[Rfam]
RNA sequence: GGGUGUAGCGUUGCAUCGUGCAGCGAGACAGGUUUAUGCGAUGGUCGGGCCGCCACG
Numbered sequence: 001g002g003g004u005g006u007a008g009c010g011u012u013g014c015a016u017c018g019u020g021c022a023g024c025g026a027g028a029c030a031g032g033u034u035u036a037u038g039c040g041a042u043g044g045u046c047g048g049g050c051c052g053c054c055a056c057g
Base pairs, nucleotide, nucleotide: 005029006028009025010024011023012022039057040056042055043054044053045052